A member of the RNA family "Molybdenum/Tungsten riboswitch aptamer (Moco RNA motif)" from Candidatus Syntrophosphaera thermopropionivorans, 119 nucleotides long. Pairs were carried over by alignment from the consensus structure, which is taken from published work.

[Rfam]
RNA sequence: AAAAAAGAAGCACGCCGAGUGUUUGAAUCUAAACUCAAAAAGCAGGAUUAAACACCGACAGGGUAUAACUGGAAACGGUUAUGCCUCCCAUUUUGGAAAGGCGGGAGAGCAAUUAAAUC
Numbered sequence: 001a002a003a004a005a006a007g008a009a010g011c012a013c014g015c016c017g018a019g020u021g022u023u024u025g026a027a028u029c030u031a032a033a034c035u036c037a038a039a040a041a042g043c044a045g046g047a048u049u050a051a052a053c054a055c056c057g058a059c060a061g062g063g064u065a066u067a068a069c070u071g072g073a074a075a076c077g078g079u080u081a082u083g084c085c086u087c088c089c090a091u092u093u094u095g096g097a098a099a100g101g102c103g104g105g106a107g108a109g110c111a112a113u114u115a116a117a118u119c
Stems, first nucleotide, its partner, number of pairs: 003113001011105001013103004019055007027048003034042002061086011087096002
It scores 73 bits against the family's covariance model.
For this family Rfam cites "in molybdenum cofactor and tungsten cofactor metabolism" (Regulski et al., Mol Microbiol, 2008).